[Rfam]
RNA sequence: AAUCGUCGAGAACCCGUUAAAUCAAGUAAUAUAAUGAUUCAAGGGGUUCUCACAAAC
Number, nucleotide and partner (000 for none) at each position: 001a000002a000003u000004c000005g000006u000007c000008g051009a050010g049011a048012a047013c046014c045015c044016g000017u042018u041019a000020a039021a038022u037023c036024a000025a000026g000027u000028a000029a000030u000031a000032u000033a000034a000035u000036g023037a022038u021039u020040c000041a018042a017043g000044g015045g014046g013047u012048u011049c010050u009051c008052a000053c000054a000055a000056a000057c000